Shown here is a 191-nucleotide RNA from Acinetobacter oleivorans, a member of the family "Aar sRNA". Pairs were carried over by alignment from the consensus structure, which was predicted with mfold. Lineage of the source: Bacteria > Pseudomonadati > Gammaproteobacteria > Moraxellales > Acinetobacter oleivorans.
RNA sequence: AUUAACGUGAAGUAACACUUAUUAACGCUAAUAGCGAUGAAGAAUUUCUUAACUAUCUCUAUUAUUCAUCAUGUAGGUUACAUGAUAUGAACCUCACGACAUUUCUCCUUAAACCGAAACUGUUUUUACAGAUUCGUUGUUCUACGCAAUGAUCACCCCAAUCAUUGCGUAUUUUUUUGCUUAAAUAUUUA
Numbered sequence: 001a002u003u004a005a006c007g008u009g010a011a012g013u014a015a016c017a018c019u020u021a022u023u024a025a026c027g028c029u030a031a032u033a034g035c036g037a038u039g040a041a042g043a044a045u046u047u048c049u050u051a052a053c054u055a056u057c058u059c060u061a062u063u064a065u066u067c068a069u070c071a072u073g074u075a076g077g078u079u080a081c082a083u084g085a086u087a088u089g090a091a092c093c094u095c096a097c098g099a100c101a102u103u104u105c106u107c108c109u110u111a112a113a114c115c116g117a118a119a120c121u122g123u124u125u126u127u128a129c130a131g132a133u134u135c136g137u138u139g140u141u142c143u144a145c146g147c148a149a150u151g152a153u154c155a156c157c158c159c160a161a162u163c164a165u166u167g168c169g170u171a172u173u174u175u176u177u178u179g180c181u182u183a184a185a186u187a188u189u190u191a
Stems, first nucleotide, its partner, number of pairs: 013051003021045003026039002066191001068189001071186002074183005081098001084095001115136004120131004144170010
Dot-bracket structure: ............(((.....(((..((..........))...)))...)))..............(.(..((.(((((..(..(..........)..)................((((.((((....)))).)))).......((((((((((.......))))))))))........))))).))..).)